[Rfam]
A member of the RNA family "pan motif" from Bacillus sp. cl95, 86 nucleotides long. A search with the family's covariance model found it, with a score of 64 bits. It is annotated as a cis-regulatory element. The family's consensus secondary structure is taken from published work.
RNA sequence: UGGGCAGUAUCGUUAAGAACUGCACCUCUGAACAAACAAUAUAAAAUAGUUUCUGCCUAGAUCCGAAUUCGGACAAGGACAGAGGG
Numbered sequence: 001u002g003g004g005c006a007g008u009a010u011c012g013u014u015a016a017g018a019a020c021u022g023c024a025c026c027u028c029u030g031a032a033c034a035a036a037c038a039a040u041a042u043a044a045a046a047u048a049g050u051u052u053c054u055g056c057c058u059a060g061a062u063c064c065g066a067a068u069u070c071g072g073a074c075a076a077g078g079a080c081a082g083a084g085g086g
Stems, first nucleotide, its partner, number of pairs: 002026002004023005010018002053082003056078003060074001062073003